[Rfam]
Nucleotides: 120
Base pairs, nucleotide, nucleotide: 003118004117005116006115009111010110011109016104017103018102019101020100021099023097024096025095026094028092029091030090031089033087034086035085
Number, partner (000 for none) and nucleotide at each position: 001000c002000u003118a004117g005116a006115g007000g008000g009111u010110c011109a012000g013000c014000a015000a016104g017103g018102g019101u020100g021099u022000g023097u024096g025095a026094c027000u028092c029091u030090a031089u032000a033087a034086u035085c036000c037000a038000a039000g040000c041000u042000g043000u044000g045000c046000u047000a048000g049000u050000a051000g052000a053000u054000c055000g056000c057000u058000u059000a060000a061000g062000a063000u064000c065000g066000a067000a068000g069000u070000g071000c072000a073000c074000a075000c076000c077000a078000a079000g080000c081000a082000u083000u084000c085035g086034a087033u088000u089031g090030u091029a092028g093000a094026g095025u096024c097023a098000u099021a100020c101019a102018c103017c104016u105000c106000c107000a108000c109011u110010g111009a112000c113000a114000c115006u116005u117004c118003u119000a120000g